[Rfam]
Cyanobacteria heterocyst sRNA: a 57-nucleotide RNA from Calothrix sp. PCC 7507.
The match comes from Rfam's covariance-model search (39 bits).
The family's RNA type in Rfam is small RNA.
RNA sequence: AAGAUGUCUGUUUAAGCACUAGGAUAUAUAGAGGUUUAGCACUCAGCUAAACCUUUU
Number, nucleotide and partner (000 for none) at each position: 001a000002a020003g019004a000005u018006g017007u016008c000009u000010g000011u000012u000013u000014a000015a000016g007017c006018a005019c003020u002021a000022g000023g000024a000025u000026a000027u000028a000029u000030a000031g055032a054033g053034g052035u051036u050037u049038a048039g047040c046041a000042c000043u000044c000045a000046g040047c039048u038049a037050a036051a035052c034053c033054u032055u031056u000057u000